[Rfam]
RNA sequence: UAAGGCAUUUUCUCCCCAAACCGAGACCUAUAGGGAGAAUAAAUUACGUCUCUCAUAUCCACCAUUAAAGGGACUGGUGGAAAUAUUAAUAUCG
Numbered sequence: 001u002a003a004g005g006c007a008u009u010u011u012c013u014c015c016c017c018a019a020a021c022c023g024a025g026a027c028c029u030a031u032a033g034g035g036a037g038a039a040u041a042a043a044u045u046a047c048g049u050c051u052c053u054c055a056u057a058u059c060c061a062c063c064a065u066u067a068a069a070g071g072g073a074c075u076g077g078u079g080g081a082a083a084u085a086u087u088a089a090u091a092u093c094g
Stems, first nucleotide, its partner, number of pairs: 012037005023052005058081007

A member of the RNA family "PhotoRC-II RNA", 94 nucleotides long. The family's consensus secondary structure is taken from published work.